[Rfam]
RNA sequence: GUUUGAAAAAGGCAAACCUAUCGAAAGGUAGGGGCGCAAAACUAUGGGUCUAAAUCGUUUUUACGAUAUGAUCGCCAGGUUGCCAAA
Numbered sequence: 001g002u003u004u005g006a007a008a009a010a011g012g013c014a015a016a017c018c019u020a021u022c023g024a025a026a027g028g029u030a031g032g033g034g035c036g037c038a039a040a041a042c043u044a045u046g047g048g049u050c051u052a053a054a055u056c057g058u059u060u061u062u063a064c065g066a067u068a069u070g071a072u073c074g075c076c077a078g079g080u081u082g083c084c085a086a087a
Stems, first nucleotide, its partner, number of pairs: 012037002017032006040081004045077003048072003055066004
RNA: c-di-GMP-I riboswitch aptamer